[Rfam]
RNA: Guanidine-II riboswitch aptamer (mini-ykkC)
RNA sequence: GCUAGAGGACGACCUCUUGAAAAAGCGAUUUGGCGGGACGACCCG
Numbered sequence: 001g002c003u004a005g006a007g008g009a010c011g012a013c014c015u016c017u018u019g020a021a022a023a024a025g026c027g028a029u030u031u032g033g034c035g036g037g038a039c040g041a042c043c044c045g
Stems, first nucleotide, its partner, number of pairs: 002019001004017005034045004